[Rfam]
RNA sequence: CGUAUGGUGCCAAACUUCGGGUUUGGAGAGCGAUACGGCCUUAAAUUAGAGGU
Numbered sequence: 001c002g003u004a005u006g007g008u009g010c011c012a013a014a015c016u017u018c019g020g021g022u023u024u025g026g027a028g029a030g031c032g033a034u035a036c037g038g039c040c041u042u043a044a045a046u047u048a049g050a051g052g053u
Base pairs, nucleotide, nucleotide: 001037002036003035004034005033007031008030010026011025012024013023014022015021